[Rfam]
RNA sequence: CAGAGCACUCUGUCCUGAGAACUGAAUUCCAUAGAUGGAAGGUCAAGGAUUGCUCAUCUAUGGGCUCAGUUCUUAUGGUCUAGUGUUCAUAA
Numbered sequence: 001c002a003g004a005g006c007a008c009u010c011u012g013u014c015c016u017g018a019g020a021a022c023u024g025a026a027u028u029c030c031a032u033a034g035a036u037g038g039a040a041g042g043u044c045a046a047g048g049a050u051u052g053c054u055c056a057u058c059u060a061u062g063g064g065c066u067c068a069g070u071u072c073u074u075a076u077g078g079u080c081u082a083g084u085g086u087u088c089a090u091a092a
Base pairs, nucleotide, nucleotide: 008083009082012079013078018073019072020071021070022069023068024067025066033059034058035057036056